[Rfam]
RNA sequence: CUCUUAUCGAGAGAGGCAGAGGGAACUGGCCCUGUGAAGCCUCAGCAACCGGUCGAAGCGAAAUAAUGAUUAUUUCGUACCAAGGUGCUAAUUCCAGCAAGUAUGUGCUUGAAAGAUAAGAA
Numbered sequence: 001c002u003c004u005u006a007u008c009g010a011g012a013g014a015g016g017c018a019g020a021g022g023g024a025a026c027u028g029g030c031c032c033u034g035u036g037a038a039g040c041c042u043c044a045g046c047a048a049c050c051g052g053u054c055g056a057a058g059c060g061a062a063a064u065a066a067u068g069a070u071u072a073u074u075u076c077g078u079a080c081c082a083a084g085g086u087g088c089u090a091a092u093u094c095c096a097g098c099a100a101g102u103a104u105g106u107g108c109u110u111g112a113a114a115g116a117u118a119a120g121a122a
Stems, first nucleotide, its partner, number of pairs: 002121007013043005021032003026097004044089004049085002051081003093114001098111005

Annotation
This 122-nucleotide RNA sequence from Metabacillus arenae belongs to the Rfam family "SAM riboswitch aptamer (S box leader)". The organism belongs to Metabacillus, within Bacteria. The base pairs follow the family's consensus structure, which is taken from published work.